Shown here is a 104-nucleotide sequence from Pontibacillus chungwhensis, a member of the family "SAM riboswitch aptamer (S box leader)". Taxonomically the source falls in Pontibacillus chungwhensis (Bacteria, Bacilli, Bacillaceae, Pontibacillus).
[Rfam]
RNA sequence: AUCUUAUCUGGAGAGGUGGAGGGACUGGCCCUUUGAAACCCAGCAACCAUCCUUUUUAGGAACGGUGCUAAUUCCUGCAAGGCGUGAGCUUUGAAUGAUAAGAG
Numbered sequence: 001a002u003c004u005u006a007u008c009u010g011g012a013g014a015g016g017u018g019g020a021g022g023g024a025c026u027g028g029c030c031c032u033u034u035g036a037a038a039c040c041c042a043g044c045a046a047c048c049a050u051c052c053u054u055u056u057u058a059g060g061a062a063c064g065g066u067g068c069u070a071a072u073u074c075c076u077g078c079a080a081g082g083c084g085u086g087a088g089c090u091u092u093g094a095a096u097g098a099u100a101a102g103a104g
Stems, first nucleotide, its partner, number of pairs: 002103007013041001015040003021031003025077001027075002042069004047065002050061004078093006